[Rfam]
RNA sequence: CGUCUCCUCCACCCUCCUCCUUUGGUGUGGAUUUAGCCCGGACCGUCAAAGGUCCGGGCUUUUUUCU
Numbered sequence: 001c002g003u004c005u006c007c008u009c010c011a012c013c014c015u016c017c018u019c020c021u022u023u024g025g026u027g028u029g030g031a032u033u034u035a036g037c038c039c040g041g042a043c044c045g046u047c048a049a050a051g052g053u054c055c056g057g058g059c060u061u062u063u064u065u066c067u
Base pairs, nucleotide, nucleotide: 008031009030010029011028012027013025014024035060036059037058038057039056040055041054042053
Betaproteobacteria toxic small RNA: a 67-nucleotide RNA from Aromatoleum tolulyticum. A reference for the family is Kimelman et al. (2012), "A vast collection of microbial genes that are toxic to bacteria", Genome Res. The base pairs follow the family's consensus structure, which was predicted with WAR. A search with the family's covariance model found it, with a score of 65 bits. Rfam describes the family as follows. Overexpression in amino aid rich medium attenuates growth, suggesting role in repressing amino acid intake and metabolism.